[Rfam]
RNA sequence: CUGAUGGCGGCGUCUGGGUGGAAAUCGGAGUCGAUCGCCCAAUUCCCCUCCGCACCAAUGGGGUGUUCGAGAUGGGGCAGCGCCUAAGUGUCAG
Numbered sequence: 001c002u003g004a005u006g007g008c009g010g011c012g013u014c015u016g017g018g019u020g021g022a023a024a025u026c027g028g029a030g031u032c033g034a035u036c037g038c039c040c041a042a043u044u045c046c047c048c049u050c051c052g053c054a055c056c057a058a059u060g061g062g063g064u065g066u067u068c069g070a071g072a073u074g075g076g077g078c079a080g081c082g083c084c085u086a087a088g089u090g091u092c093a094g
Base pairs, nucleotide, nucleotide: 001094002093003092004091005090009084010083011082012081013080015041016040017039018038024035025034026033027032045077046076047075048074049072052066053065054064055063056062
L4-Archaeoglobi ribosomal protein leades: a 94-nucleotide sequence. The family's consensus secondary structure is taken from published work. Rfam classes the family as a cis-regulatory leader. It is one of the family's seed sequences.